This 97-nucleotide RNA from Enterococcus saccharolyticus belongs to the Rfam family "THF (Tetrahydrofolate) riboswitch aptamer". The literature on the family includes a 2010 paper in Chem Biol by Ames et al., "A eubacterial riboswitch class that senses the coenzyme tetrahydrofolate". From the family's description: Tetrahydrofolate (THF) riboswitch was first reported for Ames et al. as an RNA motif in 5' untranslated (5'-UTR)regions of folate transport and biosynthesis genes in Firmicutes genomes. Lineage of the source: Bacteria > Bacillota > Lactobacillales > Enterococcus saccharolyticus > Enterococcus saccharolyticus subsp. saccharolyticus. A search with the family's covariance model found it, with a score of 85 bits.
[Rfam]
Nucleotides: 097
Stems, first nucleotide, its partner, number of pairs: 003095003010085010020074003026057002029055008040091005061071003
Number, partner (000 for none) and nucleotide at each position: 001000a002000a003095c004094a005093g006000a007000g008000u009000a010085g011084a012083a013082a014081a015080u016079a017078a018077a019076g020074c021073g022072u023000u024000a025000a026057g027056u028000g029055c030054u031053g032052a033051g034050a035049g036048g037000a038000u039000g040091g041090g042089a043088u044087g045000u046000u047000g048036c049035c050034u051033c052032u053031u054030g055029g056027a057026c058000g059000a060000a061071g062070g063069a064000g065000u066000u067000u068000a069063u070062c071061c072022g073021c074020g075000g076019u077018u078017u079016u080015g081014u082013u083012u084011u085010c086000g087044c088043a089042u090041u091040c092000g093005c094004u095003g096000c097000a